[Rfam]
The record is a 111-nucleotide RNA from Setaria viridis, which matches "Small nucleolar RNA Z278" in Rfam. Lineage of the source: Eukaryota > Mesangiospermae > Petrosaviidae > Panicoideae > Setaria. It is annotated as a C/D-box small nucleolar RNA. A reference for the family is Chen et al. (2003), "The high diversity of snoRNAs in plants: identification and comparative study of 120 snoRNA genes from Oryza sativa", Nucleic Acids Res. The family has 7 seed sequences and 1,130 matches in Rfam 15.1. The family's consensus secondary structure was predicted with PFOLD. Rfam describes the family as follows. snoZ278 is a C/D box small nucleolar RNA. Its methylation guide targets have not been reported.
RNA sequence: UCCUAUGAUGAUUUGCCUGAUGUGAGAUGUAGAUAGCUCCAAGCCCUGUUUGUCAGGGGAACCUACUUGGAGUCCUACAUUCAAAUGAGAUUACUGGGCAUUUUCUGAGGC
Numbered sequence: 001u002c003c004u005a006u007g008a009u010g011a012u013u014u015g016c017c018u019g020a021u022g023u024g025a026g027a028u029g030u031a032g033a034u035a036g037c038u039c040c041a042a043g044c045c046c047u048g049u050u051u052g053u054c055a056g057g058g059g060a061a062c063c064u065a066c067u068u069g070g071a072g073u074c075c076u077a078c079a080u081u082c083a084a085a086u087g088a089g090a091u092u093a094c095u096g097g098g099c100a101u102u103u104u105c106u107g108a109g110g111c
Stems, first nucleotide, its partner, number of pairs: 002110002044058005